[Rfam]
miR-430 microRNA precursor family: a 69-nucleotide RNA from Dissostichus mawsoni.
NCBI's taxonomy places the organism under Eukaryota, Chordata, Osteoglossocephalai, Euacanthomorphacea, Dissostichus.
RNA sequence: CAGAUUACCCUAAAGCAAAACACUAAUGUUUUUUUUUCUUCAUAAGUGCUUCUCUUUGGGGUUGUCUUG
Numbered sequence: 001c002a003g004a005u006u007a008c009c010c011u012a013a014a015g016c017a018a019a020a021c022a023c024u025a026a027u028g029u030u031u032u033u034u035u036u037u038c039u040u041c042a043u044a045a046g047u048g049c050u051u052c053u054c055u056u057u058g059g060g061g062u063u064g065u066c067u068u069g
Stems, first nucleotide, its partner, number of pairs: 004065002007062005013056003017053001019050001021048004026043003